[Rfam]
RNA sequence: GAGGCGGUAUCCUUAAAGGAACUGCACUUGCAGCUUGAAAGCCAAUCUUAUUGGACAUUUGAAUAACGUUACACGAGAUGUUGGAUUCUGCUCUGAGCCUUACGGGACCGAGACAGAAGG
Numbered sequence: 001g002a003g004g005c006g007g008u009a010u011c012c013u014u015a016a017a018g019g020a021a022c023u024g025c026a027c028u029u030g031c032a033g034c035u036u037g038a039a040a041g042c043c044a045a046u047c048u049u050a051u052u053g054g055a056c057a058u059u060u061g062a063a064u065a066a067c068g069u070u071a072c073a074c075g076a077g078a079u080g081u082u083g084g085a086u087u088c089u090g091c092u093c094u095g096a097g098c099c100u101u102a103c104g105g106g107a108c109c110g111a112g113a114c115a116g117a118a119g120g
Stems, first nucleotide, its partner, number of pairs: 001029003004025005010020002088116003091112003095108001098106002
RNA: pan motif